The family of this 221-nucleotide RNA sequence from Paenibacillus monticola is "FuFi-1 RNA". It is annotated as a small RNA.
[Rfam]
RNA sequence: GUCAUGUGCUAAUAGGGACUCAGUUAUUGCAGGGUCACGUCUGCAUAAGUCAUGGCGUCUCUCAAGAAGCCUUAGUAGCACCUAAGGUAAUACCGACUCUUCAGUCACCAUGCUGUACGGGGCUACUAACCAUAGAGCCAGCCGUUGUCGGUAAUUGCAGGAGAUAAGAAGUGUAAAAGCGUGAGACAAGCCCAGAAGCUGUGCUAAGCUUCUGGGCAUUG
Number, nucleotide and partner (000 for none) at each position: 001g056002u055003c054004a053005u052006g051007u000008g000009c000010u000011a000012a000013u000014a000015g000016g000017g000018a000019c000020u000021c000022a000023g000024u000025u000026a000027u000028u045029g044030c043031a042032g041033g000034g000035u184036c183037a182038c181039g180040u000041c032042u031043g030044c029045a028046u000047a000048a000049g000050u000051c006052a005053u004054g003055g002056c001057g165058u164059c163060u162061c161062u160063c000064a000065a000066g000067a000068a000069g088070c087071c086072u085073u084074a083075g082076u206077a205078g204079c203080a202081c201082c075083u074084a073085a072086g071087g070088u069089a155090a000091u153092a152093c151094c150095g149096a148097c000098u000099c000100u000101u000102c000103a000104g000105u000106c000107a000108c000109c000110a000111u000112g000113c000114u000115g000116u000117a000118c000119g000120g000121g000122g000123c000124u000125a000126c000127u000128a000129a000130c000131c000132a000133u000134a000135g000136a000137g000138c000139c000140a000141g000142c000143c000144g000145u000146u000147g000148u096149c095150g094151g093152u092153a091154a000155u089156u000157g000158c000159a000160g062161g061162a060163g059164a058165u057166a000167a000168g000169a000170a000171g000172u000173g000174u000175a000176a000177a000178a000179g000180c039181g038182u037183g036184a035185g000186a000187c000188a219189a000190g217191c216192c215193c214194a213195g212196a211197a210198g209199c208200u207201g081202u080203g079204c078205u077206a076207a200208g199209c198210u197211u196212c195213u194214g193215g192216g191217c190218a000219u188220u000221g000